[Rfam]
RNA sequence: AUUGUGAUUGCAAGGAUUAACUAUGAUUAAAACAGUUAGUGCAAAAUAAAUAUCUGUACUUUUGGUUGAUAUCAUCUGUUUUCCUUACAACCUAUUAAAUUUAAAUUAUUCUAUUUUUAACAAUCCAAGGUGUAUUGCCACUUUCAAGCUAUAGAGACGGGUUAAAACCCGUC
Numbered sequence: 001a002u003u004g005u006g007a008u009u010g011c012a013a014g015g016a017u018u019a020a021c022u023a024u025g026a027u028u029a030a031a032a033c034a035g036u037u038a039g040u041g042c043a044a045a046a047u048a049a050a051u052a053u054c055u056g057u058a059c060u061u062u063u064g065g066u067u068g069a070u071a072u073c074a075u076c077u078g079u080u081u082u083c084c085u086u087a088c089a090a091c092c093u094a095u096u097a098a099a100u101u102u103a104a105a106u107u108a109u110u111c112u113a114u115u116u117u118u119a120a121c122a123a124u125c126c127a128a129g130g131u132g133u134a135u136u137g138c139c140a141c142u143u144u145c146a147a148g149c150u151a152u153a154g155a156g157a158c159g160g161g162u163u164a165a166a167a168c169c170c171g172u173c
Base pairs, nucleotide, nucleotide: 001114002113004111006109008090009089010088012086013085014084015083016082019079023075024074025073026072027071029067030066033065035063038060039059041057042056043055122150124148127144128143129142130141131140132139156173157172158171159170160169161168
RNA: Nitrogen stress-induced RNA 8